[Rfam]
RNA sequence: UAAUGCAAUAGAAAACUGCCGAAGACAGCAGGUGCCGCAAGGCAUAAGGAUGAAAACGCCUGCCGAGGAGAGUUGAUUGUAUGAUUGACUUUAAUCCUCUCUGGUAUCAGGGAGGUUUUUUUACGGCGGU
Numbered sequence: 001u002a003a004u005g006c007a008a009u010a011g012a013a014a015a016c017u018g019c020c021g022a023a024g025a026c027a028g029c030a031g032g033u034g035c036c037g038c039a040a041g042g043c044a045u046a047a048g049g050a051u052g053a054a055a056a057c058g059c060c061u062g063c064c065g066a067g068g069a070g071a072g073u074u075g076a077u078u079g080u081a082u083g084a085u086u087g088a089c090u091u092u093a094a095u096c097c098u099c100u101c102u103g104g105u106a107u108c109a110g111g112g113a114g115g116u117u118u119u120u121u122u123a124c125g126g127c128g129g130u
Base pairs, nucleotide, nucleotide: 028063029062030061031060032059033058034043035042036041096115097114098113099112100111101110102109103108

Shown here is a 130-nucleotide RNA sequence from Blautia sp. OF03-15BH, a member of the family "Ribosomal protein L10 leader". Rfam classes the family as a cis-regulatory leader. The organism belongs to Blautia, within Bacteria. A search with the family's covariance model found it, with a score of 74 bits. Rfam describes the family as follows. This family is a putative r-protein leader autoregulatory structure found in B. subtilis and other low-GC Gram-positive bacteria. The base pairs follow the family's consensus structure, which was predicted with CMfinder.